[Rfam]
RNA sequence: AUGACCGUACUUGAACAGGAUCUGUUCUAUAGGUCAUACACCUGUCUGUGUUCUUUAACUCAGACAAGCUCCUCAACCCAGACGAAGAGACAGAGUCCCUACACCUGAGCGCAACGUAAGGUCGCAGUGGCCGUGCCGCUGGCACGGACGCGCGGCUCUGGAUGAACGUCCCUCCGAGCCACAUUCCGCCGGCAGGGAUGGUGCCUGGGACAUUCAGAUGGGUU
Numbered sequence: 001a002u003g004a005c006c007g008u009a010c011u012u013g014a015a016c017a018g019g020a021u022c023u024g025u026u027c028u029a030u031a032g033g034u035c036a037u038a039c040a041c042c043u044g045u046c047u048g049u050g051u052u053c054u055u056u057a058a059c060u061c062a063g064a065c066a067a068g069c070u071c072c073u074c075a076a077c078c079c080a081g082a083c084g085a086a087g088a089g090a091c092a093g094a095g096u097c098c099c100u101a102c103a104c105c106u107g108a109g110c111g112c113a114a115c116g117u118a119a120g121g122u123c124g125c126a127g128u129g130g131c132c133g134u135g136c137c138g139c140u141g142g143c144a145c146g147g148a149c150g151c152g153c154g155g156c157u158c159u160g161g162a163u164g165a166a167c168g169u170c171c172c173u174c175c176g177a178g179c180c181a182c183a184u185u186c187c188g189c190c191g192g193c194a195g196g197g198a199u200g201g202u203g204c205c206u207g208g209g210a211c212a213u214u215c216a217g218a219u220g221g222g223u224u
Stems, first nucleotide, its partner, number of pairs: 001037002003034001005033002013027006043066003047062002050059003076223005095211005102203004109169003118159001120157006127151003131147005171196003175192001178189002

About this RNA:
This 224-nucleotide sequence from Volvox carteri belongs to the Rfam family "Plant small nucleolar RNA U3". Gene Ontology terms of the family: RNA processing and nucleolus. Lineage of the source: Eukaryota > Viridiplantae > Chlorophyceae > Chlamydomonadales > Volvox carteri. Rfam describes the family as follows. Small nucleolar RNAs (snoRNAs) are involved in the processing and modification of rRNA in the nucleolus. Rfam classes the family as a C/D-box small nucleolar RNA. On this family, see Marz and Stadler, RNA Biol 2010: "Comparative analysis of eukaryotic U3 snoRNA".